RNA sequence: GCGGGUGUCGUAUAAUGGUCAUUACCUUUGCUUCCCAAGCAAAAGACGACGGUUCGAUUCCGUUCACCCGCU
Numbered sequence: 001g002c003g004g005g006u007g008u009c010g011u012a013u014a015a016u017g018g019u020c021a022u023u024a025c026c027u028u029u030g031c032u033u034c035c036c037a038a039g040c041a042a043a044a045g046a047c048g049a050c051g052g053u054u055c056g057a058u059u060c061c062g063u064u065c066a067c068c069c070g071c072u
Base pairs, nucleotide, nucleotide: 001071002070003069004068005067006066007065010025011024012023027043028042029041030040031039048064049063050062051061052060

Rfam assigns this 72-nucleotide RNA from Eoetvoesiella caeni to the family "tRNA". Transfer RNA (tRNA) molecules are approximately 80 nucleotides in length. A search with the family's covariance model found it, with a score of 63 bits. The family's consensus secondary structure is taken from published work.